RNA: small nucleolar RNA snoR137
Organism: Vitis rotundifolia
RNA sequence: GUUGCUUCUUGCUGGUGACUCCCUUUAUGAAGGUGAGGAAAUUGCUUCACUUCAGAAGCAUGGAUUGAUGACUUCUUGCCAUUAUUAAGCAUCAUUGUCCGUUAACCUUGUUGCACUGUUUUACCCAUCUCCUGGUACAUUU
Numbered sequence: 001g002u003u004g005c006u007u008c009u010u011g012c013u014g015g016u017g018a019c020u021c022c023c024u025u026u027a028u029g030a031a032g033g034u035g036a037g038g039a040a041a042u043u044g045c046u047u048c049a050c051u052u053c054a055g056a057a058g059c060a061u062g063g064a065u066u067g068a069u070g071a072c073u074u075c076u077u078g079c080c081a082u083u084a085u086u087a088a089g090c091a092u093c094a095u096u097g098u099c100c101g102u103u104a105a106c107c108u109u110g111u112u113g114c115a116c117u118g119u120u121u122u123a124c125c126c127a128u129c130u131c132c133u134g135g136u137a138c139a140u141u142u
Stems, first nucleotide, its partner, number of pairs: 003060006016049003020040001022038003078136004084130001091122001093118002096115002